[Rfam]
RNA sequence: UGACUCCAGGGAAGGGAUGAUGUUCUAAUUGAGACUCAAGAAAAGGAUUCUGAGCCUCCGAGCUUUGAAGGAGCCACUCGGUCCCUGACCUUCCUCGAGGCAGA
Number, nucleotide and partner (000 for none) at each position: 001u000002g000003a000004c000005u000006c000007c000008a000009g095010g094011g093012a092013a091014g090015g089016g000017a000018u000019g000020a000021u000022g000023u000024u000025c000026u000027a000028a000029u000030u000031g000032a000033g000034a000035c000036u000037c000038a000039a000040g000041a000042a000043a000044a000045g000046g000047a000048u000049u000050c000051u000052g000053a000054g000055c000056c000057u000058c000059c000060g000061a000062g000063c000064u000065u000066u000067g000068a000069a000070g000071g000072a000073g000074c000075c000076a000077c000078u000079c000080g000081g000082u000083c000084c000085c000086u000087g000088a000089c015090c014091u013092u012093c011094c010095u009096c000097g000098a000099g000100g000101c000102a000103g000104a000

The family of this 104-nucleotide RNA from Sus scrofa is "Small nucleolar RNA SNORD124".
Gene Ontology terms of the family: nucleolus and RNA processing.
Taxonomically the source falls in Sus (Eukaryota, Eumetazoa, Bilateria, Gnathostomata).
A search with the family's covariance model found it, with a score of 120 bits.